[Rfam]
RNA: L31-Firmicutes ribosomal protein leader
RNA sequence: CUCUGUUUCUUAGGGAUUCAGGGCGGAAGGAG
Numbered sequence: 001c002u003c004u005g006u007u008u009c010u011u012a013g014g015g016a017u018u019c020a021g022g023g024c025g026g027a028a029g030g031a032g
Stems, first nucleotide, its partner, number of pairs: 001023005008016002